[Rfam]
RNA: SAM riboswitch aptamer (S box leader)
Organism: Blautia obeum
RNA sequence: CUUUUAUUCAGAGUGGUGGAGAUACAAAGGAUCUGAGAAGCCACGGCAACCCCUUUAUGUAUGAGGAAGGUGCCAACCUGAGCGAGACAUCGAACAAUAAGAG
Numbered sequence: 001c002u003u004u005u006a007u008u009c010a011g012a013g014u015g016g017u018g019g020a021g022a023u024a025c026a027a028a029g030g031a032u033c034u035g036a037g038a039a040g041c042c043a044c045g046g047c048a049a050c051c052c053c054u055u056u057a058u059g060u061a062u063g064a065g066g067a068a069g070g071u072g073c074c075a076a077c078c079u080g081a082g083c084g085a086g087a088c089a090u091c092g093a094a095c096a097a098u099a100a101g102a103g
Stems, first nucleotide, its partner, number of pairs: 001103008013044005021033003030079001045074004050070002052066004083092003